msiK RNA: a 58-nucleotide RNA from Gleimia coleocanis. It is annotated as a cis-regulatory element. The match comes from Rfam's covariance-model search (62 bits). The family's consensus secondary structure is taken from published work.
RNA sequence: ACUUGACACCUCUCACUACGGAUCGUUCGGCACGUACCUGCCGAUGGAGGAAAUUAAG
Numbered sequence: 001a002c003u004u005g006a007c008a009c010c011u012c013u014c015a016c017u018a019c020g021g022a023u024c025g026u027u028c029g030g031c032a033c034g035u036a037c038c039u040g041c042c043g044a045u046g047g048a049g050g051a052a053a054u055u056a057a058g
Base pairs, nucleotide, nucleotide: 009050010049011048012047014046015045027044028043029042030041031040032039